The record is a 135-nucleotide RNA from Phyllostomus discolor, which matches "Small nucleolar RNA SNORA79" in Rfam.
The source organism's lineage runs through Eukaryota, Metazoa, Eumetazoa, Euteleostomi and Phyllostomus.
The family's consensus secondary structure was predicted with RNAalifold.
ACA65 (SNORA79) is a member of the H/ACA class of snoRNAs that guide the sites of modification of uridines to pseudouridines. This snoRNA was identified by computational screening and its expression in mouse experimentally verified by Northern blot and primer extension analysis.
A reference for the family is Schattner et al. (2006), "A computational screen for mammalian pseudouridylation guide H/ACA RNAs", RNA.
By type it is an H/ACA-box small nucleolar RNA.
[Rfam]
RNA sequence: UGACACUCUUAAAAUGUUUCCCUCACACUAGGAUUUUAGGUCAUCAUAAAUUAAAAUUUGAUUUUCUGCACUCAGAAAAUAUUAGGAUAAUGGGAUUAUUUGUUUAUUUUCUGAAAUUUGUGGAAUCAAACAUUU
Number, nucleotide and partner (000 for none) at each position: 001u039002g000003a000004c000005a000006c000007u033008c032009u031010u030011a029012a000013a000014a000015u025016g024017u000018u000019u000020c000021c000022c000023u000024c016025a015026c000027a000028c000029u011030a010031g009032g008033a007034u000035u000036u000037u000038a000039g001040g000041u000042c000043a000044u000045c000046a000047u000048a000049a000050a000051u000052u000053a000054a000055a000056a000057u000058u000059u000060g127061a126062u125063u124064u123065u122066c000067u000068g000069c000070a000071c000072u114073c113074a112075g111076a110077a109078a108079a107080u106081a105082u000083u000084a000085g101086g100087a099088u098089a097090a000091u000092g000093g000094g000095a000096u000097u089098a088099u087100u086101u085102g000103u000104u000105u081106a080107u079108u078109u077110u076111c075112u074113g073114a072115a000116a000117u000118u000119u000120g000121u000122g065123g064124a063125a062126u061127c060128a000129a000130a000131c000132a000133u000134u000135u000